[Rfam]
RNA sequence: GGAGGUCGAUGAUGAUCCUCAAAAUAUUUGCCUACAUUGUUUGAUCUCAAGCAUGAUAAGAAAAAUCUCAGUACUUCUGAGGCCUCA
Numbered sequence: 001g002g003a004g005g006u007c008g009a010u011g012a013u014g015a016u017c018c019u020c021a022a023a024a025u026a027u028u029u030g031c032c033u034a035c036a037u038u039g040u041u042u043g044a045u046c047u048c049a050a051g052c053a054u055g056a057u058a059a060g061a062a063a064a065a066u067c068u069c070a071g072u073a074c075u076u077c078u079g080a081g082g083c084c085u086c087a
Stems, first nucleotide, its partner, number of pairs: 002086001004084004
A member of the RNA family "Small nucleolar RNA SNORD34" from Nelumbo nucifera, 87 nucleotides long.
By type it is a C/D-box small nucleolar RNA.
It scores 49 bits against the family's covariance model.
snoRNA U34 is found in intron 5 of the ribosomal protein L13a gene in humans.
The base pairs follow the family's consensus structure, which was predicted with PFOLD.
Its Rfam clan is "SNORD34 clan".
A reference for the family is Chen et al. (2003), "The high diversity of snoRNAs in plants: identification and comparative study of 120 snoRNA genes from Oryza sativa", Nucleic Acids Res.
Gene Ontology terms of the family: RNA processing and nucleolus.